[Rfam]
RNA sequence: UAGUUCUUACUUUCGGUUAUCUAGCUUUAUGACGGCUAUCACACUCAUACAGCUAGAUAACCAAAGACAAUAACAA
Numbered sequence: 001u002a003g004u005u006c007u008u009a010c011u012u013u014c015g016g017u018u019a020u021c022u023a024g025c026u027u028u029a030u031g032a033c034g035g036c037u038a039u040c041a042c043a044c045u046c047a048u049a050c051a052g053c054u055a056g057a058u059a060a061c062c063a064a065a066g067a068c069a070a071u072a073a074c075a076a
Stems, first nucleotide, its partner, number of pairs: 001076001003074003007070002011066003015062012028049005
Rfam assigns this 76-nucleotide RNA from Clupea harengus to the family "mir-9/mir-79 microRNA precursor family". Gene Ontology terms of the family: miRNA-mediated post-transcriptional gene silencing and RISC complex. The family's consensus secondary structure was predicted with RNAalifold. It scores 62 bits against the family's covariance model. Rfam 15.1 lists 5,647 matches to the family in 934 species. Taxonomically the source falls in Clupea (Eukaryota, Metazoa, Clupeiformes, Clupeinae).